[Rfam]
RNA sequence: CAGCAUGUUUCCCUGGCAGUCACUCUUUGUGGCCAUGGACUCUCCAACUACAUGCAAGAGCAACAUGGGAAACACUGACAGCUUCAGUUAGCACAAUACCUGCAGCUGCCACUCACCUUUCCCAUGAUA
Numbered sequence: 001c002a003g004c005a006u007g008u009u010u011c012c013c014u015g016g017c018a019g020u021c022a023c024u025c026u027u028u029g030u031g032g033c034c035a036u037g038g039a040c041u042c043u044c045c046a047a048c049u050a051c052a053u054g055c056a057a058g059a060g061c062a063a064c065a066u067g068g069g070a071a072a073c074a075c076u077g078a079c080a081g082c083u084u085c086a087g088u089u090a091g092c093a094c095a096a097u098a099c100c101u102g103c104a105g106c107u108g109c110c111a112c113u114c115a116c117c118u119u120u121c122c123c124a125u126g127a128u129a
Stems, first nucleotide, its partner, number of pairs: 011038002015034003019030002067122005081109002084102001087099001